[Rfam]
RNA sequence: CAGAUACAGUGAUGAUGGCAUAGUUCAGCAGAAUAUCCUGUGACGAACACUUCUGUCUUUCGCUCCUAUCUGAUGUAUCUG
Numbered sequence: 001c002a003g004a005u006a007c008a009g010u011g012a013u014g015a016u017g018g019c020a021u022a023g024u025u026c027a028g029c030a031g032a033a034u035a036u037c038c039u040g041u042g043a044c045g046a047a048c049a050c051u052u053c054u055g056u057c058u059u060u061c062g063c064u065c066c067u068a069u070c071u072g073a074u075g076u077a078u079c080u081g
Stems, first nucleotide, its partner, number of pairs: 004078005